[Rfam]
RNA sequence: AUAGAUAUAAGUUAAUUGGUAAACUGGAUGUCUUCCAAACAUUGAAUGCGAGUUCGAUUCUCGCUAUCUAUA
Numbered sequence: 001a002u003a004g005a006u007a008u009a010a011g012u013u014a015a016u017u018g019g020u021a022a023a024c025u026g027g028a029u030g031u032c033u034u035c036c037a038a039a040c041a042u043u044g045a046a047u048g049c050g051a052g053u054u055c056g057a058u059u060c061u062c063g064c065u066a067u068c069u070a071u072a
Base pairs, nucleotide, nucleotide: 001071002070003069004068005067006066007065010025011024012023013022027043028042029041030040031039048064049063050062051061052060
Shown here is a 72-nucleotide sequence from Saccharomyces cerevisiae, a member of the family "tRNA". It is annotated as a transfer RNA. The organism belongs to Saccharomyces, within Eukaryota. Gene Ontology term of the family: triplet codon-amino acid adaptor activity. The sequence is in the family's curated seed alignment.